[Rfam]
RNA: Small nucleolar RNA SNORD35
RNA sequence: GGCAAGUGAUGUCUUUUCUCACGAUGGUCUGCGGAUGCCACCGCGGGCAAUGCCGAUAAUGCCAAAGGCUUAGCUGAUGCCAAGAG
Numbered sequence: 001g002g003c004a005a006g007u008g009a010u011g012u013c014u015u016u017u018c019u020c021a022c023g024a025u026g027g028u029c030u031g032c033g034g035a036u037g038c039c040a041c042c043g044c045g046g047g048c049a050a051u052g053c054c055g056a057u058a059a060u061g062c063c064a065a066a067g068g069c070u071u072a073g074c075u076g077a078u079g080c081c082a083a084g085a086g
Stems, first nucleotide, its partner, number of pairs: 001081004